[Rfam]
A member of the RNA family "c-di-GMP-I riboswitch aptamer" from Geosporobacter ferrireducens, 90 nucleotides long. Rfam 15.1 lists 5,092 matches to the family in 1,772 species. A search with the family's covariance model found it, with a score of 50 bits.
RNA sequence: UCACGAUACUGGCAACCCGGUGAAAACACUGGGACGCAAAGCAAUAGGACCUAAUCUUCCGGCUGGAGGAAUGGCAACCUGGCCGCAGAA
Numbered sequence: 001u002c003a004c005g006a007u008a009c010u011g012g013c014a015a016c017c018c019g020g021u022g023a024a025a026a027c028a029c030u031g032g033g034a035c036g037c038a039a040a041g042c043a044a045u046a047g048g049a050c051c052u053a054a055u056c057u058u059c060c061g062g063c064u065g066g067a068g069g070a071a072u073g074g075c076a077a078c079c080u081g082g083c084c085g086c087a088g089a090a
Base pairs, nucleotide, nucleotide: 012037013036017032018031019030020029021028022027041083042082046080047079048078050074051073056069057068058067059066